[Rfam]
RNA sequence: GUUAGUGGGUAAUUGCGUGUGGCUUAUGUCGCAUGAGGAAAGUCCAUGCUCGCACUGACUGCGAUGUCAGUAGUGUUCGUGCUAGCUGAAAAAAUAAGGCUAGGCAGCCGAUUGAAUCGGUUGACGGCCAACGAAAGACCUACGGGUAACUAUGGUUUAGUAGUUGUGAAAGUGCCACAGUGACGAACCGUCAAAGAAAUGCGACGGGUGGAACGCGGUAAACCCCUCGAGCGGGCAACCCAAACUUUGGUAGGGGCGCUUGACCUAGCGAACUGAAGUGAUGGUCGGGGAGACAGAAAUGUCUGAGAUAGAUGAUUGCCACCGGUUAUAGACCGCCAAUCUGUAAUCGGUACAAAACAUGGCUUAUAGCU
Numbered sequence: 001g002u003u004a005g006u007g008g009g010u011a012a013u014u015g016c017g018u019g020u021g022g023c024u025u026a027u028g029u030c031g032c033a034u035g036a037g038g039a040a041a042g043u044c045c046a047u048g049c050u051c052g053c054a055c056u057g058a059c060u061g062c063g064a065u066g067u068c069a070g071u072a073g074u075g076u077u078c079g080u081g082c083u084a085g086c087u088g089a090a091a092a093a094a095u096a097a098g099g100c101u102a103g104g105c106a107g108c109c110g111a112u113u114g115a116a117u118c119g120g121u122u123g124a125c126g127g128c129c130a131a132c133g134a135a136a137g138a139c140c141u142a143c144g145g146g147u148a149a150c151u152a153u154g155g156u157u158u159a160g161u162a163g164u165u166g167u168g169a170a171a172g173u174g175c176c177a178c179a180g181u182g183a184c185g186a187a188c189c190g191u192c193a194a195a196g197a198a199a200u201g202c203g204a205c206g207g208g209u210g211g212a213a214c215g216c217g218g219u220a221a222a223c224c225c226c227u228c229g230a231g232c233g234g235g236c237a238a239c240c241c242a243a244a245c246u247u248u249g250g251u252a253g254g255g256g257c258g259c260u261u262g263a264c265c266u267a268g269c270g271a272a273c274u275g276a277a278g279u280g281a282u283g284g285u286c287g288g289g290g291a292g293a294c295a296g297a298a299a300u301g302u303c304u305g306a307g308a309u310a311g312a313u314g315a316u317u318g319c320c321a322c323c324g325g326u327u328a329u330a331g332a333c334c335g336c337c338a339a340u341c342u343g344u345a346a347u348c349g350g351u352a353c354a355a356a357a358c359a360u361g362g363c364u365u366a367u368a369g370c371u
Stems, first nucleotide, its partner, number of pairs: 004371003007367001008320007016035006040365003044362005049235005054071006077230003081226001082103006104125001105123008126225002129166004137157004144151002172223002174219003188207005195200001239255003259289007291304005322350011
Description: The family of this 371-nucleotide sequence from Weissella cibaria is "Bacterial RNase P class B". It scores 322 bits against the family's covariance model. On this family, see Frank and Pace, Annu Rev Biochem 1998: "Ribonuclease P: unity and diversity in a tRNA processing ribozyme". By type it is a ribozyme.